Background:
The family of this 148-nucleotide RNA sequence from Heyndrickxia sporothermodurans is "FMN riboswitch aptamer (RFN element)". The source organism's lineage runs through Bacteria, Bacilli, Caryophanales, Bacillaceae and Heyndrickxia. From the family's description: The RFN element is a highly conserved domain that is found frequently in the 5'-untranslated regions of prokaryotic mRNAs that encode for flavin mononucleotide (FMN) biosynthesis and transport proteins.

RNA sequence: AAUAUCCUUCGGGGCAGGGUGAAAUUCCCUACCGGCGGUGAUGAAGCAGCAAUGCUUCUUAGUCCGUGACCCGGUUAACAAUUGUUAAACGGUGGAUCUGGUGAAACUCCAGAGCCGACAGUUAAAGUCUGGAUGGGAGAAGGAAAAA
Numbered sequence: 001a002a003u004a005u006c007c008u009u010c011g012g013g014g015c016a017g018g019g020u021g022a023a024a025u026u027c028c029c030u031a032c033c034g035g036c037g038g039u040g041a042u043g044a045a046g047c048a049g050c051a052a053u054g055c056u057u058c059u060u061a062g063u064c065c066g067u068g069a070c071c072c073g074g075u076u077a078a079c080a081a082u083u084g085u086u087a088a089a090c091g092g093u094g095g096a097u098c099u100g101g102u103g104a105a106a107c108u109c110c111a112g113a114g115c116c117g118a119c120a121g122u123u124a125a126a127g128u129c130u131g132g133a134u135g136g137g138a139g140a141a142g143g144a145a146a147a148a
Base pairs, nucleotide, nucleotide: 003146005144006143007142008141009140010139017029018028019027031128032127033117034116035067036066037065038064062115063114071092072091097113098112099111100110101109119131120130121129